[Rfam]
RNA: Small nucleolar RNA SNORA65
RNA sequence: CCUGCCACUGCACCUGGUUCCAUUGUUGUAUUGGCUGGUGCAAUCCAGUGGUGAGCUGAGAGAAAAACCCAGCUUAGGAAACAGGGUUAUUCUGCUUGUGGGUGACUCUGUGCCGAAAGCUUGGGAACAACU
Number, nucleotide and partner (000 for none) at each position: 001c000002c000003u000004g000005c051006c050007a049008c048009u047010g046011c000012a000013c000014c000015u000016g000017g000018u000019u000020c038021c037022a036023u000024u033025g032026u000027u000028g000029u000030a000031u000032u025033g024034g000035c000036u022037g021038g020039u000040g000041c000042a000043a000044u000045c000046c010047a009048g008049u007050g006051g005052u000053g000054a000055g000056c000057u000058g000059a000060g000061a000062g000063a000064a000065a000066a000067a000068c125069c124070c123071a122072g120073c119074u118075u117076a000077g114078g113079a000080a000081a000082c110083a109084g108085g107086g106087u105088u000089a000090u102091u101092c100093u000094g000095c000096u000097u000098g000099u000100g092101g091102g090103u000104g000105a087106c086107u085108c084109u083110g082111u000112g000113c078114c077115g000116a000117a075118a074119g073120c072121u000122u071123g070124g069125g068126a000127a000128c000129a000130a000131c000132u000